[Rfam]
RNA sequence: CCGGUCUUUUAACUCAGUUCCUUGCUUCCGCUGGACGACCGGGCCAAGCGUGGAAGCUGAAUAAUCCGUAAGGAGCAACCAAUG
Numbered sequence: 001c002c003g004g005u006c007u008u009u010u011a012a013c014u015c016a017g018u019u020c021c022u023u024g025c026u027u028c029c030g031c032u033g034g035a036c037g038a039c040c041g042g043g044c045c046a047a048g049c050g051u052g053g054a055a056g057c058u059g060a061a062u063a064a065u066c067c068g069u070a071a072g073g074a075g076c077a078a079c080c081a082a083u084g
Stems, first nucleotide, its partner, number of pairs: 017076007024057006032046003